RNA sequence: CAAUACGAGGCCGUGCGACUCCACGAUAUUCGCAGGGCAAGCGUAAAAUAAAGGAGGCAUACGCAGGACCCGCCGGGCUUGCGGUGCGGCAGCGUGGAGACCUGUCGCAAAGCCAUCGCCGCCAAGCGGGCGCUGGCGAGCUGUGCAGCGAGCGAAGGCUGUGCAUGGCAGAGCCGAACAUAUGGCA
Numbered sequence: 001c002a003a004u005a006c007g008a009g010g011c012c013g014u015g016c017g018a019c020u021c022c023a024c025g026a027u028a029u030u031c032g033c034a035g036g037g038c039a040a041g042c043g044u045a046a047a048a049u050a051a052a053g054g055a056g057g058c059a060u061a062c063g064c065a066g067g068a069c070c071c072g073c074c075g076g077g078c079u080u081g082c083g084g085u086g087c088g089g090c091a092g093c094g095u096g097g098a099g100a101c102c103u104g105u106c107g108c109a110a111a112g113c114c115a116u117c118g119c120c121g122c123c124a125a126g127c128g129g130g131c132g133c134u135g136g137c138g139a140g141c142u143g144u145g146c147a148g149c150g151a152g153c154g155a156a157g158g159c160u161g162u163g164c165a166u167g168g169c170a171g172a173g174c175c176g177a178a179c180a181u182a183u184g185g186c187a
Base pairs, nucleotide, nucleotide: 010038011037012036014034015033016032017031018030070084071083072082073081076175077174078173079172080171085109086108087107088106089105090104091103092102094101095100112137113136114135115134117132118131119130120129140169141168142167143166144165145164146163147162151160152159153158
RNA: malK-I RNA